This 333-nucleotide RNA from Serratia symbiotica belongs to the Rfam family "RNase E 5' UTR element".
About the family: This family represents a conserved element found in the 5' UTR of RNase E mRNA. RNase E is a key regulatory enzyme in the pathway of mRNA degradation in E. coli that is able to auto-regulate the degradation of its own mRNA in response to changes in RNase E activity.
Rfam links the family to the GO term regulation of gene expression.
Taxonomically the source falls in Serratia symbiotica (Bacteria, Pseudomonadota, Enterobacterales, Serratia).
The family's consensus secondary structure is taken from published work.
The family's RNA type in Rfam is cis-regulatory element.
[Rfam]
RNA sequence: CUUUCCGCGUUGAUUCUGGUUACAGGAAAAAGGUGGAAUUAUGGGUUUGUCUGAUCGCGCAAAACGCAGCAAUGGCGUAAGACGUAAUGCGAAAUCACACAAUUAGCGGGCUGCGGGUUGUAGCUUGGGCGGCAAAUGGAAUCAGGUCUGUCAACGUUAAUCAGAAGCUAUUCCCCAAGUAAAAUUGCUGUCUUCACAAAGAAAUAUCGGCUUACCGAAAUAAUACGCCCUUAUGCAGGCGACAACCGUGAGGUUGACGGCUUUGCAAGAAAAUUUGGGGUUUUCGGUUCUGAUCCGGCCAUGUGGUUAUUUUGCCCGCAGCUUUAUCGAUAA
Numbered sequence: 001c002u003u004u005c006c007g008c009g010u011u012g013a014u015u016c017u018g019g020u021u022a023c024a025g026g027a028a029a030a031a032g033g034u035g036g037a038a039u040u041a042u043g044g045g046u047u048u049g050u051c052u053g054a055u056c057g058c059g060c061a062a063a064a065c066g067c068a069g070c071a072a073u074g075g076c077g078u079a080a081g082a083c084g085u086a087a088u089g090c091g092a093a094a095u096c097a098c099a100c101a102a103u104u105a106g107c108g109g110g111c112u113g114c115g116g117g118u119u120g121u122a123g124c125u126u127g128g129g130c131g132g133c134a135a136a137u138g139g140a141a142u143c144a145g146g147u148c149u150g151u152c153a154a155c156g157u158u159a160a161u162c163a164g165a166a167g168c169u170a171u172u173c174c175c176c177a178a179g180u181a182a183a184a185u186u187g188c189u190g191u192c193u194u195c196a197c198a199a200a201g202a203a204a205u206a207u208c209g210g211c212u213u214a215c216c217g218a219a220a221u222a223a224u225a226c227g228c229c230c231u232u233a234u235g236c237a238g239g240c241g242a243c244a245a246c247c248g249u250g251a252g253g254u255u256g257a258c259g260g261c262u263u264u265g266c267a268a269g270a271a272a273a274u275u276u277g278g279g280g281u282u283u284u285c286g287g288u289u290c291u292g293a294u295c296c297g298g299c300c301a302u303g304u305g306g307u308u309a310u311u312u313u314g315c316c317c318g319c320a321g322c323u324u325u326a327u328c329g330a331u332a333a
Base pairs, nucleotide, nucleotide: 003038004037005036006035007034008033014027015026016025017024018023047102048101049100050099052097053096054095058091059090060089061088064085065084066083069076070075108324109323110322111321112320113319114318115317116316117315118314126301127300128299130297131296132295138174139173140172141171142170147165148164149163150162184212186210188209190207191206193203194202195201214288215287216286217285218284227281228280229279230278231277240259241258243256244255245254246253247252